[Rfam]
RNA sequence: ACCCAUCAUUAAGAGAGUGGCGAAAGCCUCACCAACCUGCCUAAACCGGGCAAGGUGGUUACGCAAAAGCGGAUGUGACCUUCGGUAACCAAACGGCCAAGC
Numbered sequence: 001a002c003c004c005a006u007c008a009u010u011a012a013g014a015g016a017g018u019g020g021c022g023a024a025a026g027c028c029u030c031a032c033c034a035a036c037c038u039g040c041c042u043a044a045a046c047c048g049g050g051c052a053a054g055g056u057g058g059u060u061a062c063g064c065a066a067a068a069g070c071g072g073a074u075g076u077g078a079c080c081u082u083c084g085g086u087a088a089c090c091a092a093a094c095g096g097c098c099a100a101g102c
Base pairs, nucleotide, nucleotide: 007075008074009073010072015030019028020027021026031059032058033057036055037054038053039051040050041049046095078086079085080084

Description:
SAM-I/IV (S-adenosyl methionine) riboswitch aptamer: a 102-nucleotide RNA from Polynucleobacter kasalickyi. It scores 52 bits against the family's covariance model. The literature on the family includes a 2014 paper in PNAS by Trausch et al., "Structural basis for diversity in the SAM clan of riboswitches".